[Rfam]
RNA sequence: AUAAACGAUAAAAACAGACCCGUCGGCGUUUGGGGCAAAAUUGUGGGAUCAUUGUGUGCGAUCGCUGGUGUGCUGACUAUCGCACUGCCCGUACCGGUUAUCGUCAGUAAU
Numbered sequence: 001a002u003a004a005a006c007g008a009u010a011a012a013a014a015c016a017g018a019c020c021c022g023u024c025g026g027c028g029u030u031u032g033g034g035g036c037a038a039a040a041u042u043g044u045g046g047g048a049u050c051a052u053u054g055u056g057u058g059c060g061a062u063c064g065c066u067g068g069u070g071u072g073c074u075g076a077c078u079a080u081c082g083c084a085c086u087g088c089c090c091g092u093a094c095c096g097g098u099u100a101u102c103g104u105c106a107g108u109a110a111u
Base pairs, nucleotide, nucleotide: 001111002110004108007105008104009103011101013099014098015097017094018092019091034074035073036072037071047059
RNA: Potassium channel RNA editing signal